[Rfam]
RNA sequence: ACGUCCUGCCUCGUGAUCGUCUUCUCAACCUUCACCGGGCAGGCGGAUGAAGGGGGGACCCUCGCCUGGACGUGACAGGCGAGGGUCCUUC
Dot-bracket structure: .((.(((((((.((((..((.......))..)))).))))))))).......((((((((((((((((.......))))))))))))))))
Numbered sequence: 001a002c003g004u005c006c007u008g009c010c011u012c013g014u015g016a017u018c019g020u021c022u023u024c025u026c027a028a029c030c031u032u033c034a035c036c037g038g039g040c041a042g043g044c045g046g047a048u049g050a051a052g053g054g055g056g057g058a059c060c061c062u063c064g065c066c067u068g069g070a071c072g073u074g075a076c077a078g079g080c081g082a083g084g085g086u087c088c089u090u091c
Stems, first nucleotide, its partner, number of pairs: 002045002005043007013035004019029002053091016
A member of the RNA family "sodF sRNA" from Streptomyces sp. Ncost-T10-10d, 91 nucleotides long. The family's RNA type in Rfam is small RNA. Gene Ontology terms of the family: regulation of mRNA stability, negative regulation of translation and mRNA binding.